[Rfam]
Shown here is a 135-nucleotide RNA sequence from Capsicum baccatum, a member of the family "small nucleolar RNA snoR137". Its family is annotated with RNA processing and nucleolus in the Gene Ontology. The family's RNA type in Rfam is H/ACA-box small nucleolar RNA.
RNA sequence: GUUGCUUCAUAUGGUGAACUCUCUCUUAAAACUGAAUUAAGGGAUGUUCAAGUUUCCUAAGCAUAUAUGAAUAGUCAGUAUUAAACAACAUGGCGUAAUUCAAUUGCAUCCUGCUACCUGUCUCCUGGUACAUUA
Numbered sequence: 001g002u003u004g005c006u007u008c009a010u011a012u013g014g015u016g017a018a019c020u021c022u023c024u025c026u027u028a029a030a031a032c033u034g035a036a037u038u039a040a041g042g043g044a045u046g047u048u049c050a051a052g053u054u055u056c057c058u059a060a061g062c063a064u065a066u067a068u069g070a071a072u073a074g075u076c077a078g079u080a081u082u083a084a085a086c087a088a089c090a091u092g093g094c095g096u097a098a099u100u101c102a103a104u105u106g107c108a109u110c111c112u113g114c115u116a117c118c119u120g121u122c123u124c125c126u127g128g129u130a131c132a133u134u135a
Stems, first nucleotide, its partner, number of pairs: 003063005015050005020044005074129005080123001087115001089113001092110002095107001